[Rfam]
Shown here is a 154-nucleotide RNA from Amborella trichopoda, a member of the family "MIR8565 microRNA precursor family". It scores 142 bits against the family's covariance model.

RNA sequence: CUUAGACCCAUGUGUCUAGGACUUCAAAAGAUCACCAUUAAAUUUGGUACAAAUCUCUAGAAAAGUUAUUACAUGGGUGUAGGACUUGACUUUUCUAGUGAUUUGUGCCAAAUUUAAUGGUGAUCCUUUGGGGUCCUAUUCACAUGGGUGUGGA
Dot-bracket structure: .(((.((((((((...((((((((((((.(((.((((((((((((((((((((((.(((((((((((((((((....)))))....)))))))))))).)))))))))))))))))))))).))).))))))))))))...)))))))).))).